Shown here is a 120-nucleotide sequence, a member of the family "LOOT RNA". Rfam classes the family as a small RNA.

Nucleotides: 120
Stems, first nucleotide, its partner, number of pairs: 001035004009028007042083011054070002058066002085104008105120006
Number, partner (000 for none) and nucleotide at each position: 001035g002034g003033c004032c005000u006000a007000a008000c009028c010027c011026c012025u013024g014023u015022a016000a017000u018000c019000c020000u021000u022015u023014a024013c025012a026011g027010g028009g029000c030000a031000u032004g033003g034002c035001u036000c037000u038000a039000a040000a041000u042083c043082u044081a045080u046079c047078c048077c049076u050075a051074g052073u053000a054070u055069c056000a057000a058066a059065c060000u061000c062000c063000u064000c065059g066058u067000c068000a069055g070054a071000g072000c073052a074051c075050u076049a077048g078047g079046g080045a081044u082043a083042g084000u085104c086103a087102u088101a089100u090099c091098u092097c093000g094000a095000a096000a097092g098091g099090g100089a101088u102087a103086u104085g105120g106119g107118u108117c109116u110115c111000g112000c113000a114000a115110g116109a117108g118107a119106u120105c